[Rfam]
The family of this 91-nucleotide RNA sequence from Corchorus olitorius is "Small nucleolar RNA U54".
Clan: U54 clan.
On this family, see Chen et al., Nucleic Acids Res 2003: "The high diversity of snoRNAs in plants: identification and comparative study of 120 snoRNA genes from Oryza sativa".
A search with the family's covariance model found it, with a score of 44 bits.
From the family's description: U54 is a C/D box small nucleolar RNA, which acts as a methylation guide for 18S ribosomal RNA in plants.
The family's consensus secondary structure was predicted with PFOLD.
By type it is a C/D-box small nucleolar RNA.
Gene Ontology terms of the family: RNA processing and nucleolus.
The family has 21 seed sequences and 614 matches in Rfam 15.1.
RNA sequence: AGCUCUGUGAUUGCAUAGCCUAAUUAGGCAAUAUACGCUAUUCCGACACAAGCAUAUGAGCAGACAACUUUUGAGAGAAAGUAUGAGAGCU
Number, nucleotide and partner (000 for none) at each position: 001a091002g090003c089004u088005c087006u000007g000008u000009g000010a000011u000012u000013g000014c000015a000016u000017a000018g000019c000020c000021u000022a000023a000024u000025u000026a000027g000028g000029c000030a000031a000032u000033a000034u000035a000036c000037g000038c000039u000040a000041u000042u000043c000044c000045g000046a000047c000048a000049c000050a000051a000052g000053c000054a000055u000056a000057u000058g000059a000060g000061c000062a000063g000064a000065c000066a000067a000068c000069u000070u000071u000072u000073g000074a000075g000076a000077g000078a000079a000080a000081g000082u000083a000084u000085g000086a000087g005088a004089g003090c002091u001